[Rfam]
RNA sequence: GAAAUUAUAGAACAGAUUAAUAGAACACCCCAUCUGUUCUUCAAACACAGGAAUAGUUAAAUAAAUGAUUAUGAAGAGAUAUUAUUGUUUCAUUCGUCACUCCUCGAAUUGAUGAUUCGAUUGUUGCUCAUCCAUAU
Numbered sequence: 001g002a003a004a005u006u007a008u009a010g011a012a013c014a015g016a017u018u019a020a021u022a023g024a025a026c027a028c029c030c031c032a033u034c035u036g037u038u039c040u041u042c043a044a045a046c047a048c049a050g051g052a053a054u055a056g057u058u059a060a061a062u063a064a065a066u067g068a069u070u071a072u073g074a075a076g077a078g079a080u081a082u083u084a085u086u087g088u089u090u091c092a093u094u095c096g097u098c099a100c101u102c103c104u105c106g107a108a109u110u111g112a113u114g115a116u117u118c119g120a121u122u123g124u125u126g127c128u129c130a131u132c133c134a135u136a137u
Stems, first nucleotide, its partner, number of pairs: 006044001009041002013036005073132001076129003084121004094115006101108001
This 137-nucleotide RNA from Rhododendron simsii belongs to the Rfam family "Small nucleolar RNA snoR111". Lineage of the source: Eukaryota > Streptophyta > Euphyllophyta > Gunneridae > Rhododendron. The family's RNA type in Rfam is H/ACA-box small nucleolar RNA. The literature on the family includes a 2002 paper in Curr Biol by Marker et al., "Experimental RNomics: identification of 140 candidates for small non-messenger RNAs in the plant Arabidopsis thaliana". The match comes from Rfam's covariance-model search (38 bits). Pairs were carried over by alignment from the consensus structure, which was predicted with WAR. Gene Ontology terms of the family: RNA processing and nucleolus.